[Rfam]
RNA: ZMP/ZTP riboswitch aptamer (pfl RNA motif)
RNA sequence: UCUGAGGGUCGCGACUGGCGUUGAGGUGGGCCACCACCGGGGAGCGACCGACACGGCAUUCGACCGCACGCCUGGGCCGAUGUU
Numbered sequence: 001u002c003u004g005a006g007g008g009u010c011g012c013g014a015c016u017g018g019c020g021u022u023g024a025g026g027u028g029g030g031c032c033a034c035c036a037c038c039g040g041g042g043a044g045c046g047a048c049c050g051a052c053a054c055g056g057c058a059u060u061c062g063a064c065c066g067c068a069c070g071c072c073u074g075g076g077c078c079g080a081u082g083u084u
Base pairs, nucleotide, nucleotide: 003053004052007049008048009047010046011045012044015041016040017072018071019070020069021068026037027036028035029034061079062078064076065075
Dot-bracket structure: ..((..((((((..(([[[[[....((((....))))..))..))))))..)).......((.((..]]]]]..)).)).....